Rfam assigns this 178-nucleotide RNA from Synechococcus sp. SynAce01 to the family "Antisense RNA which regulates isiA expression". A search with the family's covariance model found it, with a score of 97 bits. For this family Rfam cites "An internal antisense RNA regulates expression of the photosynthesis gene isiA" (Duhring et al., Proc Natl Acad Sci U S A, 2006). Rfam 15.1 lists 3,397 matches to the family in 659 species. Taxonomically the source falls in Synechococcus (Bacteria, Bacillati, Synechococcales, Synechococcaceae). Pairs were carried over by alignment from the consensus structure, which was predicted with PFOLD.
RNA sequence: GGUAACUCAGAAUUGUGCCGAAAUCGAGGGUUGGGUCAGUCACCAGACGCACCGCCCCAAUGUUGGAGUCAUACAAGCCACCAAAAGCCAUGGCCUUGAUCACCAGGAGCAGGGCACCUAAACCCAGAAUCGCCAGAUGGUGCCCCAGAAUCAGACCCAGUUGCUUGGGGUCACCCCA
Numbered sequence: 001g002g003u004a005a006c007u008c009a010g011a012a013u014u015g016u017g018c019c020g021a022a023a024u025c026g027a028g029g030g031u032u033g034g035g036u037c038a039g040u041c042a043c044c045a046g047a048c049g050c051a052c053c054g055c056c057c058c059a060a061u062g063u064u065g066g067a068g069u070c071a072u073a074c075a076a077g078c079c080a081c082c083a084a085a086a087g088c089c090a091u092g093g094c095c096u097u098g099a100u101c102a103c104c105a106g107g108a109g110c111a112g113g114g115c116a117c118c119u120a121a122a123c124c125c126a127g128a129a130u131c132g133c134c135a136g137a138u139g140g141u142g143c144c145c146c147a148g149a150a151u152c153a154g155a156c157c158c159a160g161u162u163g164c165u166u167g168g169g170g171u172c173a174c175c176c177c178a
Base pairs, nucleotide, nucleotide: 136175138173139172140171141170144169145168146167147166148165